Overview:
Shown here is a 126-nucleotide RNA sequence from Paenalicyclobacillus mengziensis, a member of the family "c-di-AMP riboswitch aptamer (ydaO/yuaA leader)". Taxonomically the source falls in Paenalicyclobacillus (Bacteria, Bacillota, Caryophanales, Alicyclobacillaceae).

RNA sequence: CAAACCAAUGGUCCGAAUCGCACGAACGGGGGACUUUUUUACUGGGGUGAAUCGCAGCAUUGCUGCGUAGGGAAAUCCUUCAACCGAACCCGACAACUAACCUCGUAGGACUUUGAAGGAGUUGCC
Numbered sequence: 001c002a003a004a005c006c007a008a009u010g011g012u013c014c015g016a017a018u019c020g021c022a023c024g025a026a027c028g029g030g031g032g033a034c035u036u037u038u039u040u041a042c043u044g045g046g047g048u049g050a051a052u053c054g055c056a057g058c059a060u061u062g063c064u065g066c067g068u069a070g071g072g073a074a075a076u077c078c079u080u081c082a083a084c085c086g087a088a089c090c091c092g093a094c095a096a097c098u099a100a101c102c103u104c105g106u107a108g109g110a111c112u113u114u115g116a117a118g119g120a121g122u123u124g125c126c
Stems, first nucleotide, its partner, number of pairs: 011111004018025002026106006036044001045091003053067004070085002